[Rfam]
RNA sequence: AGAGGUCCUCCGCGGCCGGGGUGGAACACUUGCCUUGUCGCCACGGUGACAAAGCAAGCAUUCCACCAGGCUGCUCAUGCUGCCUGC
Numbered sequence: 001a002g003a004g005g006u007c008c009u010c011c012g013c014g015g016c017c018g019g020g021g022u023g024g025a026a027c028a029c030u031u032g033c034c035u036u037g038u039c040g041c042c043a044c045g046g047u048g049a050c051a052a053a054g055c056a057a058g059c060a061u062u063c064c065a066c067c068a069g070g071c072u073g074c075u076c077a078u079g080c081u082g083c084c085u086g087c
Stems, first nucleotide, its partner, number of pairs: 004084003012074006020067007029058005037050005
This 87-nucleotide sequence from Cnephaeus nilssonii belongs to the Rfam family "mir-9195 microRNA precursor family". Gene Ontology terms of the family: RISC complex and miRNA-mediated post-transcriptional gene silencing. Taxonomically the source falls in Cnephaeus (Eukaryota, Vertebrata, Amniota, Laurasiatheria). Rfam 15.1 lists 438 matches to the family in 7 species.